[Rfam]
Small nucleolar RNA SNORD72: a 75-nucleotide RNA from Callithrix jacchus. The literature on the family includes a 2001 paper in EMBO J by Huttenhofer et al., "RNomics: an experimental approach that identifies 201 candidates for novel, small, non-messenger RNAs in mouse". The organism belongs to Callithrix, within Eukaryota. Rfam classes the family as a C/D-box small nucleolar RNA. The family has 16 seed sequences and 726 matches in Rfam 15.1. snoRNA HBII-240 belongs to the CD family of snoRNAs. It is the human orthologue of the mouse MBII-240 and is predicted to guide 2'O-ribose methylation of the large 28S rRNA at residue U4590.

RNA sequence: AGCUUAUCAGUGAUGUAAAAAUAAAUGUCUGAACAUAUGAAUGCUAUUGAUUUCAGCAUUUAACUGAGAUAAGCG
Dot-bracket structure: .(((((((...........................................................))))))).